[Rfam]
The family of this 508-nucleotide RNA from Streptomyces piniterrae is "Saccharopolyspora sRNA 350". The literature on the family includes a 2013 paper in PLoS One by Liu et al., "Prediction and characterization of small non-coding RNAs related to secondary metabolites in Saccharopolyspora erythraea". Rfam links the family to the GO term regulation of secondary metabolite biosynthetic process. Rfam 15.1 lists 1,170 matches to the family in 705 species. Pairs were carried over by alignment from the consensus structure, which was predicted with RNAfold.

RNA sequence: CGGUAGCUGAACUCCCAGGUCCCGUCGGGGCUGGUGAGCACAUGGUCACCCAGGUGGUCGCCGCCGGCCAGCGCCUCCAGCGCGGUCUCGUCGCCGUAUUUGCCGGUGCCGAUGCGGUCGACCCGGCCGUGCGCGAUCAGCACCAGCCGGUCCCCGGGGUGGCCGGCCUCGGCGAUCAGGUCGCCGGGGGCGUACUCGUGCCGGGUGAAGCGCGCGCCCAGCGCACCGAGUACAUCGGUAUCGGUGAAGUCCCGCAGCGCGGGCAGUUCGCGCAGCUCGUCGGGGAUGAUCGCGACGUCGGUGCCGCUGAUGGCGAAGUCGAUGCGCCCGUCGCCGAGGGUGUACGACAGCCGGCGGUUCACCCGGUACGUACCGCCGGAGACCUGCACCCAGGGCAGCAGCCGCAGCAGCCAGCGGGACGUGAUGCCCUGCAUCUGCGGCGGGGUUUUGGUGGUGGUCGCCAAAUUCCGCGCAGCAGUGGUGCUGAGACUUGAAUUCGGGGUAUCUU
Numbered sequence: 001c002g003g004u005a006g007c008u009g010a011a012c013u014c015c016c017a018g019g020u021c022c023c024g025u026c027g028g029g030g031c032u033g034g035u036g037a038g039c040a041c042a043u044g045g046u047c048a049c050c051c052a053g054g055u056g057g058u059c060g061c062c063g064c065c066g067g068c069c070a071g072c073g074c075c076u077c078c079a080g081c082g083c084g085g086u087c088u089c090g091u092c093g094c095c096g097u098a099u100u101u102g103c104c105g106g107u108g109c110c111g112a113u114g115c116g117g118u119c120g121a122c123c124c125g126g127c128c129g130u131g132c133g134c135g136a137u138c139a140g141c142a143c144c145a146g147c148c149g150g151u152c153c154c155c156g157g158g159g160u161g162g163c164c165g166g167c168c169u170c171g172g173c174g175a176u177c178a179g180g181u182c183g184c185c186g187g188g189g190g191c192g193u194a195c196u197c198g199u200g201c202c203g204g205g206u207g208a209a210g211c212g213c214g215c216g217c218c219c220a221g222c223g224c225a226c227c228g229a230g231u232a233c234a235u236c237g238g239u240a241u242c243g244g245u246g247a248a249g250u251c252c253c254g255c256a257g258c259g260c261g262g263g264c265a266g267u268u269c270g271c272g273c274a275g276c277u278c279g280u281c282g283g284g285g286a287u288g289a290u291c292g293c294g295a296c297g298u299c300g301g302u303g304c305c306g307c308u309g310a311u312g313g314c315g316a317a318g319u320c321g322a323u324g325c326g327c328c329c330g331u332c333g334c335c336g337a338g339g340g341u342g343u344a345c346g347a348c349a350g351c352c353g354g355c356g357g358u359u360c361a362c363c364c365g366g367u368a369c370g371u372a373c374c375g376c377c378g379g380a381g382a383c384c385u386g387c388a389c390c391c392a393g394g395g396c397a398g399c400a401g402c403c404g405c406a407g408c409a410g411c412c413a414g415c416g417g418g419a420c421g422u423g424a425u426g427c428c429c430u431g432c433a434u435c436u437g438c439g440g441c442g443g444g445g446u447u448u449u450g451g452u453g454g455u456g457g458u459c460g461c462c463a464a465a466u467u468c469c470g471c472g473c474a475g476c477a478g479u480g481g482u483g484c485u486g487a488g489a490c491u492u493g494a495a496u497u498c499g500g501g502g503u504a505u506c507u508u
Base pairs, nucleotide, nucleotide: 006390008388009387011385015381018328019327022324025322026321027320028319032315035313037311039309040308045305047303048302049301050300052298054233055232058229059228060227063224064223065111066110067109068108077102079100080099082097083096084095085094086093117222118221120219123216126213127212130209131206132205134203135202140197150191154189155188158185159184160183162177166173167172235295236294237293240290241289242288243287245285250282253279254278256277257276258275259271260270261269329342330341331340332339351379352378353377354376355375356374357373361371362370391431392430393429394428395427396426397425399423400422403418405416407415437476438475440473442471444469445468447465448464449463450462451461452460480506481505482504484502485501488498